The record is a 137-nucleotide RNA from Nycticryphes semicollaris, which matches "Small nucleolar RNA SNORA33" in Rfam.
It is annotated as an H/ACA-box small nucleolar RNA.
ACA33 is a member of the H/ACA class of snoRNA that guide the sites of modification of uridines to pseudouridines.
The base pairs follow the family's consensus structure, which was predicted with PFOLD.
RNA sequence: AUGCCAGGUCAAGGUCUCUGCUCAACUUGGCACUUGUUUUGCAGAGCACUGUUUUAAAAAGACACUGGUAGAGUGAAGCCACGGUACGAGCCUUGAAGACUUUGUUGUCUUGGAGGUCCCAAGAGAUGGCGACAUCC
Numbered sequence: 001a002u003g004c005c006a007g008g009u010c011a012a013g014g015u016c017u018c019u020g021c022u023c024a025a026c027u028u029g030g031c032a033c034u035u036g037u038u039u040u041g042c043a044g045a046g047c048a049c050u051g052u053u054u055u056a057a058a059a060a061g062a063c064a065c066u067g068g069u070a071g072a073g074u075g076a077a078g079c080c081a082c083g084g085u086a087c088g089a090g091c092c093u094u095g096a097a098g099a100c101u102u103u104g105u106u107g108u109c110u111u112g113g114a115g116g117u118c119c120c121a122a123g124a125g126a127u128g129g130c131g132a133c134a135u136c137c
Base pairs, nucleotide, nucleotide: 003069004068005067006066007065017045018044019043020042021041078130079129080128081127090117091116092115093114094113096111098109099108100107